[Rfam]
RNA: mir-10 microRNA precursor family
Organism: Araneus ventricosus
RNA sequence: CUACAUCUACCCUGUAGAUCCGAAUUUGUGGCACAGUGCAUAACAAAUUCGGUUCUAGAGAGGUUCGUGUGGG
Number, nucleotide and partner (000 for none) at each position: 001c000002u071003a070004c069005a068006u067007c000008u000009a000010c063011c062012c000013u000014g000015u000016a056017g055018a054019u000020c052021c051022g050023a049024a048025u047026u046027u045028g044029u043030g000031g000032c000033a000034c000035a000036g000037u000038g000039c000040a000041u000042a000043a029044c028045a027046a026047a025048u024049u023050c022051g021052g020053u000054u018055c017056u016057a000058g000059a000060g000061a000062g011063g010064u000065u000066c000067g006068u005069g004070u003071g002072g000073g000